[Rfam]
RNA sequence: CUGUGUGAUGACUUACAUGGAAUCUCGUUCGGCUGAAGGCUUGCUGUUGAGACUUGGAAAUCUGAUUUCU
Number, nucleotide and partner (000 for none) at each position: 001c000002u000003g000004u000005g000006u000007g000008a000009u000010g000011a000012c000013u000014u000015a000016c000017a000018u000019g000020g000021a000022a000023u052024c051025u050026c049027g048028u000029u000030c046031g045032g044033c043034u000035g000036a000037a000038g000039g000040c000041u000042u000043g033044c032045u031046g030047u000048u027049g026050a025051g024052a023053c000054u000055u000056g000057g000058a000059a000060a000061u000062c000063u000064g000065a000066u000067u000068u000069c000070u000

This 70-nucleotide sequence from Cavia porcellus belongs to the Rfam family "Small nucleolar RNA SNORD30". The sequence is in the family's curated seed alignment. By type it is a C/D-box small nucleolar RNA. Taxonomically the source falls in Cavia (Eukaryota, Bilateria, Amniota, Glires). On this family, see Tycowski et al., Proc Natl Acad Sci U S A 1996: "A small nucleolar RNA requirement for site-specific ribose methylation of rRNA in Xenopus".